The family of this 78-nucleotide sequence from Salmo salar is "Small nucleolar RNA SNORD101". A search with the family's covariance model found it, with a score of 54 bits.

RNA sequence: GCUUGUGUGAUGAUUUAUUUUCUUUAGUCGGAUACCCCUUCACUCUAAAUUAUGAGUGAGAUCCCCUAUCUGACAAAC
Dot-bracket structure: (.(((....................................................................))).)

It is annotated as a C/D-box small nucleolar RNA.